[Rfam]
RNA sequence: UGAUGUUUGCGUGGACUGGCUCGUAUAUGUUCAGGAAUAUGGCCUGAAUGUCUCUACCCGGCCACCGUAAAUGGCUGGACUACGAGCAUAUGGGUCCCCGGA
Numbered sequence: 001u002g003a004u005g006u007u008u009g010c011g012u013g014g015a016c017u018g019g020c021u022c023g024u025a026u027a028u029g030u031u032c033a034g035g036a037a038u039a040u041g042g043c044c045u046g047a048a049u050g051u052c053u054c055u056a057c058c059c060g061g062c063c064a065c066c067g068u069a070a071a072u073g074g075c076u077g078g079a080c081u082a083c084g085a086g087c088a089u090a091u092g093g094g095u096c097c098c099c100g101g102a
Stems, first nucleotide, its partner, number of pairs: 019087007029049007058078007
Rfam assigns this 102-nucleotide sequence from Planifilum fulgidum to the family "Purine riboswitch aptamer".
The source organism's lineage runs through Bacteria, Bacillati, Bacilli, Caryophanales and Planifilum.
Rfam describes the family as follows. Riboswitches are metabolite binding domains within certain messenger RNAs that serve as precision sensors for their corresponding targets.